[Rfam]
RNA: LOOT RNA
RNA sequence: GACCUAACCCGACGAGUUUAUCUCGGCGGUAUGGUCCAAAACCGCGACGAACAUAGAGAACCCGUUAUCAGGGCGUUCGUCGCGUUGCCAGUGGAAACACUGGUAGAGGUUACCGCAAGGUGCCUU
Numbered sequence: 001g002a003c004c005u006a007a008c009c010c011g012a013c014g015a016g017u018u019u020a021u022c023u024c025g026g027c028g029g030u031a032u033g034g035u036c037c038a039a040a041a042c043c044g045c046g047a048c049g050a051a052c053a054u055a056g057a058g059a060a061c062c063c064g065u066u067a068u069c070a071g072g073g074c075g076u077u078c079g080u081c082g083c084g085u086u087g088c089c090a091g092u093g094g095a096a097a098c099a100c101u102g103g104u105a106g107a108g109g110u111u112a113c114c115g116c117a118a119g120g121u122g123c124c125u126u
Stems, first nucleotide, its partner, number of pairs: 001036004009029003013025003043084010061073003086105008106126005